A member of the RNA family "Small nucleolar RNA SNORD63" from Anser cygnoides, 65 nucleotides long.
On this family, see Galardi et al., Mol Cell Biol 2002: "Purified box C/D snoRNPs are able to reproduce site-specific 2'-O-methylation of target RNA in vitro".
Rfam describes the family as follows. snoRNA U63 is found in both humans and mice.
A search with the family's covariance model found it, with a score of 53 bits.
The organism belongs to Anser, within Eukaryota.
RNA sequence: GUGCCAUGAUGUAACUGUCAACGCAUCAUUCUGAAGGAUCGUGUGGAGACCUGUCACUGAGCACC
Numbered sequence: 001g002u003g004c005c006a007u008g009a010u011g012u013a014a015c016u017g018u019c020a021a022c023g024c025a026u027c028a029u030u031c032u033g034a035a036g037g038a039u040c041g042u043g044u045g046g047a048g049a050c051c052u053g054u055c056a057c058u059g060a061g062c063a064c065c
Stems, first nucleotide, its partner, number of pairs: 001064004